The record is a 115-nucleotide RNA from Arthrobacter oryzae, which matches "SAM (S-adenosyl methionine) riboswitch aptamer" in Rfam. Pairs were carried over by alignment from the consensus structure, which is taken from published work. For this family Rfam cites "The aptamer core of SAM-IV riboswitches mimics the ligand-binding site of SAM-I riboswitches" (Weinberg et al., RNA, 2008). Lineage of the source: Bacteria > Bacillati > Actinomycetota > Micrococcaceae > Arthrobacter.
[Rfam]
RNA sequence: GGUCAUGAGUGCCAGCAUCCAGCCCCGGCUCGCUGGCCGGCAACCCUCACUCGCGGUGGGGUGCCCCGGGUGAGGACCUGGCUGUCCGGCGACCGCCGGAGGGCAAGCGCGGCGC
Numbered sequence: 001g002g003u004c005a006u007g008a009g010u011g012c013c014a015g016c017a018u019c020c021a022g023c024c025c026c027g028g029c030u031c032g033c034u035g036g037c038c039g040g041c042a043a044c045c046c047u048c049a050c051u052c053g054c055g056g057u058g059g060g061g062u063g064c065c066c067c068g069g070g071u072g073a074g075g076a077c078c079u080g081g082c083u084g085u086c087c088g089g090c091g092a093c094c095g096c097c098g099g100a101g102g103g104c105a106a107g108c109g110c111g112g113c114g115c
Stems, first nucleotide, its partner, number of pairs: 001078004009038001011037006021030002039065003044061003048055001081104003085100006